Description
The record is a 191-nucleotide RNA sequence from Thermotalea metallivorans, which matches "Lysine riboswitch aptamer" in Rfam. Lineage of the source: Bacteria > Bacillati > Clostridia > Peptostreptococcales > Thermotalea. It scores 111 bits against the family's covariance model.
RNA sequence: UUGUGUCUUAGAGGUUGCGAUAGAUAAAGAGUACUGUGUAGGAGACGGAGGCGGUCAAGGAUUACACGGGAAAGGUAUCGUCGCCGAAGCCCAUAGAUUUGCCUAGAUCUAUGUUGCUGGGGCUAUAUUGAAUAAAUAUAGAACUGUCACGAAUGGAUCACCCAGUCUAUUCGUGAAGCGCUAUUUCACAA
Numbered sequence: 001u002u003g004u005g006u007c008u009u010a011g012a013g014g015u016u017g018c019g020a021u022a023g024a025u026a027a028a029g030a031g032u033a034c035u036g037u038g039u040a041g042g043a044g045a046c047g048g049a050g051g052c053g054g055u056c057a058a059g060g061a062u063u064a065c066a067c068g069g070g071a072a073a074g075g076u077a078u079c080g081u082c083g084c085c086g087a088a089g090c091c092c093a094u095a096g097a098u099u100u101g102c103c104u105a106g107a108u109c110u111a112u113g114u115u116g117c118u119g120g121g122g123c124u125a126u127a128u129u130g131a132a133u134a135a136a137u138a139u140a141g142a143a144c145u146g147u148c149a150c151g152a153a154u155g156g157a158u159c160a161c162c163c164a165g166u167c168u169a170u171u172c173g174u175g176a177a178g179c180g181c182u183a184u185u186u187c188a189c190a191a
Stems, first nucleotide, its partner, number of pairs: 009183003017084005024078003034069008088118003092113008119145002123141007147176011
Gene Ontology term of the family: lysine biosynthetic process.